[Rfam]
RNA sequence: GCGGACCUACGGGGCCGCAUAACCUUUCAGACCCUAAUUGGUCUGAGCUAAAACGGAAGACAGAAA
Numbered sequence: 001g002c003g004g005a006c007c008u009a010c011g012g013g014g015c016c017g018c019a020u021a022a023c024c025u026u027u028c029a030g031a032c033c034c035u036a037a038u039u040g041g042u043c044u045g046a047g048c049u050a051a052a053a054c055g056g057a058a059g060a061c062a063g064a065a066a
Stems, first nucleotide, its partner, number of pairs: 001018004006014003027046007